[Rfam]
Nucleotides: 327
Stems, first nucleotide, its partner, number of pairs: 007115001012111001018063002024058002027055003030046007065097003069093002073087002076084001078082001102109001116307002118304003122300002125297001127296002130158003134154003138150002162292004167287001169285001173283001176276006183224002185221003189217001192214001194212001198209001200207001229270006
Number, partner (000 for none) and nucleotide at each position: 001000u002000u003000u004000a005000u006000u007115c008000a009000u010000c011000a012111u013000u014000c015000u016000c017000u018063a019062u020000g021000u022000u023000g024058u025057c026000a027055g028054g029053c030046a031045u032044g033043g034042a035041g036040u037000c038000c039000c040036g041035u042034u043033c044032c045031a046030u047000c048000a049000u050000g051000a052000g053029g054028c055027u056000g057025g058024g059000u060000g061000g062019a063018u064000a065097u066096u067095g068000c069093c070092c071000u072000g073087g074086u075000u076084u077000u078082g079000g080000a081000u082078c083000c084076a085000u086074g087073c088000a089000g090000g091000c092070g093069g094000u095067u096066a097065a098000g099000g100000a101000a102109g103000a104000a105000g106000c107000u108000a109102c110000c111012a112000a113000g114000a115007g116307u117306g118304c119303u120302g121000c122300c123299a124000a125297g126000a127296a128295a129000a130158g131157u132156g133000a134154g135153a136152g137000u138150u139149u140000c141000a142000u143000u144000u145000u146000u147000g148000u149139a150138a151000u152136c153135u154134c155000c156132u157131a158130u159000a160000a161000u162292a163291g164290a165289a166000a167287a168000a169285u170000a171000c172000a173283u174000a175000a176276a177275a178274a179273u180272a181271a182000a183224u184223c185221u186220u187219c188000u189217a190000a191000c192214a193000u194212a195000c196000a197000u198209g199000a200207c201000u202000a203000g204000c205000u206000a207200g208000c209198c210000u211000u212194u213000c214192u215000u216000a217189u218000u219187g220186a221185a222000a223184g224183a225000c226000g227000g228000u229270u230269a231268u232267a233266u234265u235000a236000u237000u238000a239000a240000c241000a242000u243000c244000c245000u246000c247000a248000u249000a250000u251000c252000c253000g254000c255000c256000u257000g258000u259000c260000a261000a262000g263000a264000g265234g266233a267232u268231a269230u270229a271181u272180u273179a274178u275177u276176u277000u278000u279000u280000u281000g282000c283173a284000g285169a286000a287167u288000a289165u290164u291163u292162u293000g294000a295128u296127u297125u298000g299123u300122g301000u302120c303119a304118g305000a306117c307116a308000a309000a310000g311000a312000g313000u314000g315000a316000a317000a318000u319000u320000c321000g322000u323000u324000u325000g326000a327000a